About this RNA:
A member of the RNA family "Mammalian CPEB3 ribozyme" from Crocodylus porosus, 78 nucleotides long. The match comes from Rfam's covariance-model search (42 bits). For this family Rfam cites "A genomewide search for ribozymes reveals an HDV-like sequence in the human CPEB3 gene" (Salehi-Ashtiani et al., Science, 2006). The base pairs follow the family's consensus structure, which is taken from published work.

RNA sequence: AGAUCACAAGUUUGAGGUCACAGCAGAAGUGCUCAUGGCACAGCCACAUCAGAUUCCAACAAAUCUGAAAAUUCUGCU
Numbered sequence: 001a002g003a004u005c006a007c008a009a010g011u012u013u014g015a016g017g018u019c020a021c022a023g024c025a026g027a028a029g030u031g032c033u034c035a036u037g038g039c040a041c042a043g044c045c046a047c048a049u050c051a052g053a054u055u056c057c058a059a060c061a062a063a064u065c066u067g068a069a070a071a072u073u074c075u076g077c078u
Stems, first nucleotide, its partner, number of pairs: 014047001016045003022078007029041003050067006